[Rfam]
The record is a 170-nucleotide RNA from Acidobacterium capsulatum, which matches "Group II catalytic intron D1-D4-3" in Rfam. The pairing is the family consensus, mapped onto this sequence. The source organism's lineage runs through Bacteria, Pseudomonadati, Terriglobales, Acidobacteriaceae and Acidobacterium capsulatum. Rfam's curators put it in the seed alignment. Gene Ontology term of the family: Group II intron splicing.
RNA sequence: ACCGUCGCGAGGCGGGGUUUGAAGGAAGCGUGGAGCAAAUGCGCGAGUCGAUGGACAAAAACCGGAUACAAGGCGUGAGCGUAGGGCGAGCGGGCAACUUACCGCGAAGCCCAUAUCCAUUAAGUACGCGGAGCGUAGAUCCGGCGACUGUGCGCAGAAGGCGAUUGAGC
Numbered sequence: 001a002c003c004g005u006c007g008c009g010a011g012g013c014g015g016g017g018u019u020u021g022a023a024g025g026a027a028g029c030g031u032g033g034a035g036c037a038a039a040u041g042c043g044c045g046a047g048u049c050g051a052u053g054g055a056c057a058a059a060a061a062c063c064g065g066a067u068a069c070a071a072g073g074c075g076u077g078a079g080c081g082u083a084g085g086g087c088g089a090g091c092g093g094g095c096a097a098c099u100u101a102c103c104g105c106g107a108a109g110c111c112c113a114u115a116u117c118c119a120u121u122a123a124g125u126a127c128g129c130g131g132a133g134c135g136u137a138g139a140u141c142c143g144g145c146g147a148c149u150g151u152g153c154g155c156a157g158a159a160g161g162c163g164a165u166u167g168a169g170c
Stems, first nucleotide, its partner, number of pairs: 002015005028170002031167002035162002040156006046149005062144006073136003079129005084112004090105004